[Rfam]
RNA sequence: UGGCUGUAGCUAUAUCAAUCUAAUUGGCUGAGAAGCUAACUGGCCGGCUGUUGUGUGAGAUUGAUUUUCUAUCUCCGAUCGAUAGAUCUGCUUACCGAGCUUCUCACAUUC
Numbered sequence: 001u002g003g004c005u006g007u008a009g010c011u012a013u014a015u016c017a018a019u020c021u022a023a024u025u026g027g028c029u030g031a032g033a034a035g036c037u038a039a040c041u042g043g044c045c046g047g048c049u050g051u052u053g054u055g056u057g058a059g060a061u062u063g064a065u066u067u068u069c070u071a072u073c074u075c076c077g078a079u080c081g082a083u084a085g086a087u088c089u090g091c092u093u094a095c096c097g098a099g100c101u102u103c104u105c106a107c108a109u110u111c
Base pairs, nucleotide, nucleotide: 030105031104032103033102034101035100036099037098042092043091044090046088047087049085050083051082052081053080

This 111-nucleotide sequence from Salix brachista belongs to the Rfam family "Small nucleolar RNA snoR109". The base pairs follow the family's consensus structure, which was predicted with WAR. The family's RNA type in Rfam is H/ACA-box small nucleolar RNA. The match comes from Rfam's covariance-model search (84 bits). Its family is annotated with RNA processing and nucleolus in the Gene Ontology.